[Rfam]
RNA sequence: UUGAACAAUGUAGGUAAGGGAAGUCGGCAAACUGGAUCCGUAACUUCGGGAAAAGGAUUGGCUCUGGGGGCCGAGUCAGACGGGCUGGAAUCAGAUACGUGUCGAUCCAGUUGGGGGCUGGUUUUUCUACUUCCUGGUGCAUUCGUGUGCCGGGCUAGUGGGAUCACUGGACUCCGACCGGGCCGAUCGUGGGCGGCUUCAGCUUAUAAUGUUGCAUAGUAGCUGCGGCGUGGGUCUCCUGCGUCGUGUAGCGGCUUUGCUUCUUUCGUCUGGCGCGCGACGGCUAGCUCAGAACUGGCACGGACCAGGGGAAUCCGACUGUCUAAUUAAAACAAAGCAUUGCGAUGUCCACUGACUGGUUUUGACGCAAUGUGAUUUCUGCCCAGUGCUCUGAAUGUCAAAGUGAAGAAAUUCAACCAAGCGCGGGUAAACGGCGGGAGUAACUAUGACUCUCUUAAGGUAGCCAAAUGCCUCGUCAUCUAAUUAGUGACGCGCAUGAAUGGAUUAACGAGAUUCCCACUGUCCCUAUCUACUAUCUAGCGAAACCACAGCCAAGGGAACGGGCUUGGCAGA
Numbered sequence: 001u002u003g004a005a006c007a008a009u010g011u012a013g014g015u016a017a018g019g020g021a022a023g024u025c026g027g028c029a030a031a032c033u034g035g036a037u038c039c040g041u042a043a044c045u046u047c048g049g050g051a052a053a054a055g056g057a058u059u060g061g062c063u064c065u066g067g068g069g070g071c072c073g074a075g076u077c078a079g080a081c082g083g084g085c086u087g088g089a090a091u092c093a094g095a096u097a098c099g100u101g102u103c104g105a106u107c108c109a110g111u112u113g114g115g116g117g118c119u120g121g122u123u124u125u126u127c128u129a130c131u132u133c134c135u136g137g138u139g140c141a142u143u144c145g146u147g148u149g150c151c152g153g154g155c156u157a158g159u160g161g162g163a164u165c166a167c168u169g170g171a172c173u174c175c176g177a178c179c180g181g182g183c184c185g186a187u188c189g190u191g192g193g194c195g196g197c198u199u200c201a202g203c204u205u206a207u208a209a210u211g212u213u214g215c216a217u218a219g220u221a222g223c224u225g226c227g228g229c230g231u232g233g234g235u236c237u238c239c240u241g242c243g244u245c246g247u248g249u250a251g252c253g254g255c256u257u258u259g260c261u262u263c264u265u266u267c268g269u270c271u272g273g274c275g276c277g278c279g280a281c282g283g284c285u286a287g288c289u290c291a292g293a294a295c296u297g298g299c300a301c302g303g304a305c306c307a308g309g310g311g312a313a314u315c316c317g318a319c320u321g322u323c324u325a326a327u328u329a330a331a332a333c334a335a336a337g338c339a340u341u342g343c344g345a346u347g348u349c350c351a352c353u354g355a356c357u358g359g360u361u362u363u364g365a366c367g368c369a370a371u372g373u374g375a376u377u378u379c380u381g382c383c384c385a386g387u388g389c390u391c392u393g394a395a396u397g398u399c400a401a402a403g404u405g406a407a408g409a410a411a412u413u414c415a416a417c418c419a420a421g422c423g424c425g426g427g428u429a430a431a432c433g434g435c436g437g438g439a440g441u442a443a444c445u446a447u448g449a450c451u452c453u454c455u456u457a458a459g460g461u462a463g464c465c466a467a468a469u470g471c472c473u474c475g476u477c478a479u480c481u482a483a484u485u486a487g488u489g490a491c492g493c494g495c496a497u498g499a500a501u502g503g504a505u506u507a508a509c510g511a512g513a514u515u516c517c518c519a520c521u522g523u524c525c526c527u528a529u530c531u532a533c534u535a536u537c538u539a540g541c542g543a544a545a546c547c548a549c550a551g552c553c554a555a556g557g558g559a560a561c562g563g564g565c566u567u568g569g570c571a572g573a
Stems, first nucleotide, its partner, number of pairs: 001539001003537002010533007018525003035059005044049001060296002063293006069285005075274009084203003089199002092196001098191004102186003106182003110178007118170005125163007297301001309518007316510002320334003337373008349359003377504003381435003386432002388428004393424001396423003404415004436454006455459001475491005552569005

Shown here is a 573-nucleotide part of an RNA from Oryzias sinensis, a member of the family "Eukaryotic large subunit ribosomal RNA". Taxonomically the source falls in Oryzias (Eukaryota, Chordata, Ctenosquamata, Euacanthomorphacea). For this family Rfam cites "Crystal structure of the ribosome at 5.5 A resolution" (Yusupov et al., Science, 2001).